[Rfam]
Description
terC RNA: a 55-nucleotide sequence from Rhodobacter ferrooxidans. Rfam classes the family as a cis-regulatory element.

RNA sequence: AGAACGAACCGGGCCCCUCUGACGGCAGUUGCAGCCGUGAUGUCGGAUCGCACCG
Numbered sequence: 001a002g003a004a005c006g007a008a009c010c011g012g013g014c015c016c017c018u019c020u021g022a023c024g025g026c027a028g029u030u031g032c033a034g035c036c037g038u039g040a041u042g043u044c045g046g047a048u049c050g051c052a053c054c055g
Stems, first nucleotide, its partner, number of pairs: 006049002009046004022038005